RNA sequence: ACUUAUAUAUAUCAACAUAAAGGGUUGAUGUUUCUACUGUUUUACCAAUAAAACAACUAUGAGU
Numbered sequence: 001a002c003u004u005a006u007a008u009a010u011a012u013c014a015a016c017a018u019a020a021a022g023g024g025u026u027g028a029u030g031u032u033u034c035u036a037c038u039g040u041u042u043u044a045c046c047a048a049u050a051a052a053a054c055a056a057c058u059a060u061g062a063g064u
Stems, first nucleotide, its partner, number of pairs: 001064007008036001011029006022046002030037001038055007
This 64-nucleotide RNA from Spiroplasma taiwanense belongs to the Rfam family "2dG-I riboswitch aptamer (M. florum)". The base pairs follow the family's consensus structure, which is taken from published work. Rfam 15.1 lists 24 matches to the family in 11 species. The family is grouped with related families in Rfam's "Purine riboswitches". The organism belongs to Spiroplasma taiwanense, within Bacteria. A reference for the family is Pikovskaya et al. (2011), "Structural principles of nucleoside selectivity in a 2'-deoxyguanosine riboswitch", Nat Chem Biol.